RNA sequence: GCUGGCGAUGACGACACCCUUGCCCUCACUGAGAGCUGAUGAGAGCUCUUGUAUUCGCUCAGUGGAGCCGAGCCAGA
Numbered sequence: 001g002c003u004g005g006c007g008a009u010g011a012c013g014a015c016a017c018c019c020u021u022g023c024c025c026u027c028a029c030u031g032a033g034a035g036c037u038g039a040u041g042a043g044a045g046c047u048c049u050u051g052u053a054u055u056c057g058c059u060c061a062g063u064g065g066a067g068c069c070g071a072g073c074c075a076g077a
Stems, first nucleotide, its partner, number of pairs: 002076005